mir-210 microRNA precursor family: a 97-nucleotide sequence from Notodromas monacha. Gene Ontology terms of the family: miRNA-mediated post-transcriptional gene silencing and RISC complex. Rfam 15.1 lists 790 matches to the family in 722 species. The match comes from Rfam's covariance-model search (59 bits).
[Rfam]
RNA sequence: GUGUUUCAAACAGCAGCUGCUGGACACGGCACAAGAUUCGAUACAGAUGACUCUUGUGCGUGUGACAGCGGCUAUCGUUGGCACUGGGCAUCGACGC
Dot-bracket structure: ....(.(.(((...((((((((..((..(((((.((...............)).))))).))...))))))))...))).).)..............